RNA: MIR7993 microRNA precursor family
Organism: Anisodus acutangulus
RNA sequence: UUAAGUUAACCACAUAAAAUAUGUCAUCUCUUUUAAUUAUACGCAUCCACCUCAAUAAGUCAUAAAACCCUAGCCAUUUUCUACUCGAGGUUGAUGCGUAUAAUUAAAUGGGAUGACAUAUUUUAUGUGAUUAACUGAACU
Number, nucleotide and partner (000 for none) at each position: 001u139002u138003a000004a136005g135006u134007u133008a132009a131010c000011c129012a128013c127014a126015u125016a124017a123018a122019a121020u120021a119022u118023g117024u116025c115026a000027u000028c112029u111030c110031u000032u108033u107034u106035a105036a104037u103038u102039a101040u100041a099042c098043g097044c096045a095046u094047c093048c000049a091050c090051c089052u088053c000054a000055a000056u000057a000058a000059g000060u000061c000062a000063u000064a000065a000066a000067a000068c000069c000070c000071u000072a000073g000074c000075c000076a000077u000078u000079u000080u000081c000082u000083a000084c000085u000086c000087g000088a052089g051090g050091u049092u000093g047094a046095u045096g044097c043098g042099u041100a040101u039102a038103a037104u036105u035106a034107a033108a032109u000110g030111g029112g028113a000114u000115g025116a024117c023118a022119u021120a020121u019122u018123u017124u016125a015126u014127g013128u012129g011130a000131u009132u008133a007134a006135c005136u004137g000138a002139a001140c000141u000